[Rfam]
RNA sequence: UGAGAUAGCUAGACAGUCGCAUUAUUUUUACUUAAAUAAUGAGGAAAGUCCGGGCUCCAUAGGGUAGAAUGCCAGGUAAUACCUGGGAGGCGUGAGCCUACGGAAAGUGCCACAGAAAAUAAACCGCCAAUAGGUAAGGGUGAAAAGGUGUGGUAAGAGCACACCGCGCAGAUGGUAACAUACUGCGGCAAGGUAAACCCCAUUCGGAGCAAAGCCAAAUAGAGGAGCGAUAAUGUGACCCGCAUUGUUCCUGGGUAGGCUGCUUGAGGUAUAUGGUGACAUAUAUCCUAGAUGAAUGGCUGUCCACGACAGAACCCGGCUUAUCGGCUAUCUCAAUUU
Numbered sequence: 001u002g003a004g005a006u007a008g009c010u011a012g013a014c015a016g017u018c019g020c021a022u023u024a025u026u027u028u029u030a031c032u033u034a035a036a037u038a039a040u041g042a043g044g045a046a047a048g049u050c051c052g053g054g055c056u057c058c059a060u061a062g063g064g065u066a067g068a069a070u071g072c073c074a075g076g077u078a079a080u081a082c083c084u085g086g087g088a089g090g091c092g093u094g095a096g097c098c099u100a101c102g103g104a105a106a107g108u109g110c111c112a113c114a115g116a117a118a119a120u121a122a123a124c125c126g127c128c129a130a131u132a133g134g135u136a137a138g139g140g141u142g143a144a145a146a147g148g149u150g151u152g153g154u155a156a157g158a159g160c161a162c163a164c165c166g167c168g169c170a171g172a173u174g175g176u177a178a179c180a181u182a183c184u185g186c187g188g189c190a191a192g193g194u195a196a197a198c199c200c201c202a203u204u205c206g207g208a209g210c211a212a213a214g215c216c217a218a219a220u221a222g223a224g225g226a227g228c229g230a231u232a233a234u235g236u237g238a239c240c241c242g243c244a245u246u247g248u249u250c251c252u253g254g255g256u257a258g259g260c261u262g263c264u265u266g267a268g269g270u271a272u273a274u275g276g277u278g279a280c281a282u283a284u285a286u287c288c289u290a291g292a293u294g295a296a297u298g299g300c301u302g303u304c305c306a307c308g309a310c311a312g313a314a315c316c317c318g319g320c321u322u323a324u325c326g327g328c329u330a331u332c333u334c335a336a337u338u339u
Stems, first nucleotide, its partner, number of pairs: 001335010011324001012304007020041008046322003050319005055209004062241004067205005072086005087101001088099004102200002107198002109194003124139002126135003147165006166189001167187005172181003213261004223252006232246005268287008